[Rfam]
RNA: Group II catalytic intron D1-D4-3
Organism: Pontiella sulfatireligans
RNA sequence: UUGCUGGUAACGGCGGGGUCUGAAGGAAGCGAUAGGAAGUGAACGGUACAUAACGGUUGUAAACCUGAUUCGGCAGGCGUGGUGGGUCAGCGUGCAAAAUAGCGCGAAGCCCGAUACUCGGACAGACUGCGCAUGUGAUUGAGGAUGGGAUCGUUCACGGGGAGCCGG
Numbered sequence: 001u002u003g004c005u006g007g008u009a010a011c012g013g014c015g016g017g018g019u020c021u022g023a024a025g026g027a028a029g030c031g032a033u034a035g036g037a038a039g040u041g042a043a044c045g046g047u048a049c050a051u052a053a054c055g056g057u058u059g060u061a062a063a064c065c066u067g068a069u070u071c072g073g074c075a076g077g078c079g080u081g082g083u084g085g086g087u088c089a090g091c092g093u094g095c096a097a098a099a100u101a102g103c104g105c106g107a108a109g110c111c112c113g114a115u116a117c118u119c120g121g122a123c124a125g126a127c128u129g130c131g132c133a134u135g136u137g138a139u140u141g142a143g144g145a146u147g148g149g150a151u152c153g154u155u156c157a158c159g160g161g162g163a164g165c166c167g168g
Stems, first nucleotide, its partner, number of pairs: 001016006030167002033164001041156006047149001049147003064144003068140001073136003077132007084112004090105004
Dot-bracket structure: ((((((....)))))).............((.(.......(((((((.(((............(((.(....(((.(((((((((((..((((........))))...)))).............))))))).)))...).)))))).).)))))).......).)).